[Rfam]
RNA sequence: UUACUGGACGCUUUAGCUAUUGCACUGUUUUGUCACUCUCUGUCAAAUAACAAAUUGUUCUCUGUCAGAGAGUGACAAAACAGUUCAAUAGCAUCCACUAAC
Numbered sequence: 001u002u003a004c005u006g007g008a009c010g011c012u013u014u015a016g017c018u019a020u021u022g023c024a025c026u027g028u029u030u031u032g033u034c035a036c037u038c039u040c041u042g043u044c045a046a047a048u049a050a051c052a053a054a055u056u057g058u059u060c061u062c063u064g065u066c067a068g069a070g071a072g073u074g075a076c077a078a079a080a081c082a083g084u085u086c087a088a089u090a091g092c093a094u095c096c097a098c099u100a101a102c
Base pairs, nucleotide, nucleotide: 001101002100003099005097006096016092017091018090019089020088021087022086024084025083026082027081028080029069030068031067032066034064035063049059050058051057052056